[Rfam]
RNA: Group II catalytic intron D1-D4-3
Organism: Paraburkholderia phytofirmans
RNA sequence: UCGCGGGUGACUGCGAAUCUGGAGGAAGCCGGAAGCAAAGCGCUGGCCUGACGAACAGGAAGCGGAUACGAGGCGACCUGGCGGGGUGAGAUGUCGAAAGUCAUCAAAGCCCAAUACUUGUACGGAACGCCGGGACGCAUAUCCAACAGGCAUAAGCGUGACGGUGGGUGCG
Numbered sequence: 001u002c003g004c005g006g007g008u009g010a011c012u013g014c015g016a017a018u019c020u021g022g023a024g025g026a027a028g029c030c031g032g033a034a035g036c037a038a039a040g041c042g043c044u045g046g047c048c049u050g051a052c053g054a055a056c057a058g059g060a061a062g063c064g065g066a067u068a069c070g071a072g073g074c075g076a077c078c079u080g081g082c083g084g085g086g087u088g089a090g091a092u093g094u095c096g097a098a099a100g101u102c103a104u105c106a107a108a109g110c111c112c113a114a115u116a117c118u119u120g121u122a123c124g125g126a127a128c129g130c131c132g133g134g135a136c137g138c139a140u141a142u143c144c145a146a147c148a149g150g151c152a153u154a155a156g157c158g159u160g161a162c163g164g165u166g167g168g169u170g171c172g
Stems, first nucleotide, its partner, number of pairs: 001016006030170002035165002040159005046151005064144004073138003077134007084112004090105004